[Rfam]
RNA sequence: AAACAGCCCCCUAUGUUUUGAUUCUUUGGCAGUUUUGGACCCCCAGUCCAUUGUUGACUCGGUCAACGCUGACGUGGCACCUCUAAGUGAGGUGCCACGUCGUCAAUUGUCUGAAUCUACAAUGCAUUGGGGGUCCAAAACUGCCAAAGAAUCAAAACAUAGGGGGCUGUUU
Numbered sequence: 001a002a003a004c005a006g007c008c009c010c011c012u013a014u015g016u017u018u019u020g021a022u023u024c025u026u027u028g029g030c031a032g033u034u035u036u037g038g039a040c041c042c043c044c045a046g047u048c049c050a051u052u053g054u055u056g057a058c059u060c061g062g063u064c065a066a067c068g069c070u071g072a073c074g075u076g077g078c079a080c081c082u083c084u085a086a087g088u089g090a091g092g093u094g095c096c097a098c099g100u101c102g103u104c105a106a107u108u109g110u111c112u113g114a115a116u117c118u119a120c121a122a123u124g125c126a127u128u129g130g131g132g133g134u135c136c137a138a139a140a141c142u143g144c145c146a147a148a149g150a151a152u153c154a155a156a157a158c159a160u161a162g163g164g165g166g167c168u169g170u171u172u
Stems, first nucleotide, its partner, number of pairs: 001172002004169005012161034072100002075097008
RNA: MIR2619 microRNA precursor family
Organism: Medicago truncatula